The record is an 84-nucleotide RNA from Rosa chinensis, which matches "Small nucleolar RNA R44/J54/Z268 family" in Rfam. Rfam links the family to the GO terms nucleolus and RNA processing. The family's consensus secondary structure was predicted with PFOLD. NCBI's taxonomy places the organism under Eukaryota, Euphyllophyta, Rosales, Rosoideae, Rosa.
[Rfam]
RNA sequence: UUUGCAAGUGAUGAGAAAACAGACAGGGACAUCCGCACUCCACGGAGAUUGAUGACUUGUACUAAUGGGAAAAAAAAAUGUGAC
Numbered sequence: 001u002u003u004g005c006a007a008g009u010g011a012u013g014a015g016a017a018a019a020c021a022g023a024c025a026g027g028g029a030c031a032u033c034c035g036c037a038c039u040c041c042a043c044g045g046a047g048a049u050u051g052a053u054g055a056c057u058u059g060u061a062c063u064a065a066u067g068g069g070a071a072a073a074a075a076a077a078a079u080g081u082g083a084c
Base pairs, nucleotide, nucleotide: 002083003082004081005080006079